This 313-nucleotide sequence from Halapricum desulfuricans belongs to the Rfam family "Archaeal signal recognition particle RNA".
Lineage of the source: Archaea > Halobacteria > Halobacteriales > Haloarculaceae > Halapricum.
RNA sequence: AGACGGACUAGGCCGGGCGGUUAGGCCCCGCCCGUAUACCCGCGCUAUGGUCUUUAGCGGGGGCCGAACACCGGGUGCGUCCGGUCGACGGACGCGGACCUCGCAAGCUAACGUGGAAGCCUCGUCCGACGGGGGUAGCGGUCCACGGGAGUUCGCCUGCAGGGGCGAUCGACCGUGGUUGACCGCGGGCACCCCGCCAGGCGCGGAAGCGAGCAGCGGACCCGCGGACACCUGCCGCUCGUCGGGUCGCGGGGUGGAGGAGGCGCGCGAGACUAUCCGCGUUCGAACGCCGGGCAAUCCCGCCCGUCCACCA
Dot-bracket structure: .(..((((..((((((((((.......)))))).....(((((.............)))))))))......((((...(((((.....((((((((((.(((((..(((..(.(....((((((((((((((((((((.((.((((((..(.((((((....)))))).)..)))))).)..(((((((....((((....(((....)))....)))).))))))).)..))))).))))))))...))))))).).)..)))..)))))....))))))))))....).))))...))))...))))..).
For this family Rfam cites "Crystal structure of the ribonucleoprotein core of the signal recognition particle" (Batey et al., Science, 2000).
It scores 186 bits against the family's covariance model.
Rfam classes the family as a non-coding RNA gene.